Annotation: This 85-nucleotide RNA from Callorhinchus milii belongs to the Rfam family "Small nucleolar RNA SNORD60". Clan: SNORD60 clan. NCBI's taxonomy places the organism under Eukaryota, Metazoa, Deuterostomia, Chimaeriformes, Callorhinchus. By type it is a C/D-box small nucleolar RNA. For this family Rfam cites "Site-specific ribose methylation of preribosomal RNA: a novel function for small nucleolar RNAs" (Kiss-Laszlo et al., Cell, 1996).
[Rfam]
RNA sequence: AGCCUAUGAUGAGCCUUUUAUUUCUGACACCUCAUAUGAAAGUGUUGCACAGCAAUGCUUGAUUAUGCUUUUCUAGCUGAGGCUU
Dot-bracket structure: ((((.....................................(..((((...))))..)......................)))).
Numbered sequence: 001a002g003c004c005u006a007u008g009a010u011g012a013g014c015c016u017u018u019u020a021u022u023u024c025u026g027a028c029a030c031c032u033c034a035u036a037u038g039a040a041a042g043u044g045u046u047g048c049a050c051a052g053c054a055a056u057g058c059u060u061g062a063u064u065a066u067g068c069u070u071u072u073c074u075a076g077c078u079g080a081g082g083c084u085u
Stems, first nucleotide, its partner, number of pairs: 001084004042058001045055004